[Rfam]
RNA sequence: UUGCCGUUGUGUCUUAUGGCUUUUUAUUCCUACGUGAUGGCCGAUGGGUUCAUGUAGGAGUAGAAGCCACUAAACACGAGGUGAG
Numbered sequence: 001u002u003g004c005c006g007u008u009g010u011g012u013c014u015u016a017u018g019g020c021u022u023u024u025u026a027u028u029c030c031u032a033c034g035u036g037a038u039g040g041c042c043g044a045u046g047g048g049u050u051c052a053u054g055u056a057g058g059a060g061u062a063g064a065a066g067c068c069a070c071u072a073a074a075c076a077c078g079a080g081g082u083g084a085g
Stems, first nucleotide, its partner, number of pairs: 002084001005081001007079006014072001017069007026061012
RNA: mir-135 microRNA precursor family